[Rfam]
RNA sequence: AUGGCAGUGAUGAUUGGCGCAGGGGUACGGACCUCAGCUGGAUCAUGGGAGCUGAGUGCAGGCUGCUGCUCUGGUGCAGCAGGCAUGUGGCCAGCUCGCUGGAAGCAGCUUUGCACGAGACACUGCCAAAAGCUGAGCCAU
Numbered sequence: 001a002u003g004g005c006a007g008u009g010a011u012g013a014u015u016g017g018c019g020c021a022g023g024g025g026u027a028c029g030g031a032c033c034u035c036a037g038c039u040g041g042a043u044c045a046u047g048g049g050a051g052c053u054g055a056g057u058g059c060a061g062g063c064u065g066c067u068g069c070u071c072u073g074g075u076g077c078a079g080c081a082g083g084c085a086u087g088u089g090g091c092c093a094g095c096u097c098g099c100u101g102g103a104a105g106c107a108g109c110u111u112u113g114c115a116c117g118a119g120a121c122a123c124u125g126c127c128a129a130a131a132g133c134u135g136a137g138c139c140a141u
Base pairs, nucleotide, nucleotide: 001141002140003139004138005137
Small nucleolar RNA SNORD94: a 141-nucleotide RNA sequence from Semnornis frantzii. Taxonomically the source falls in Semnornis (Eukaryota, Opisthokonta, Bilateria, Sarcopterygii). The family's consensus secondary structure was predicted with RNAalifold. Rfam classes the family as a C/D-box small nucleolar RNA. Its family is annotated with nucleolus and RNA processing in the Gene Ontology.